[Rfam]
RNA sequence: CAGAAUAUGUGAUGAUCUCACCACAACUUGAACUCUCUCACUGAUUACUUGAUGACUGUAAAGGAUCUGAUAUUCUG
Dot-bracket structure: (((((((...............................................................)))))))
This 77-nucleotide sequence from Microtus ochrogaster belongs to the Rfam family "Small nucleolar RNA SNORD81". By type it is a C/D-box small nucleolar RNA. Its Rfam clan is "SNORD26 clan". The organism belongs to Microtus, within Eukaryota.